[Rfam]
RNA: SAM/SAH riboswitch aptamer
RNA sequence: CCGCCGCCACAACGGCUUCCUGGCGUGGCGGUCAGACACCAAUGGAGCA
Numbered sequence: 001c002c003g004c005c006g007c008c009a010c011a012a013c014g015g016c017u018u019c020c021u022g023g024c025g026u027g028g029c030g031g032u033c034a035g036a037c038a039c040c041a042a043u044g045g046a047g048c049a
Base pairs, nucleotide, nucleotide: 004031005030006029007028008027009026010025013022014021015048016047017046019045020044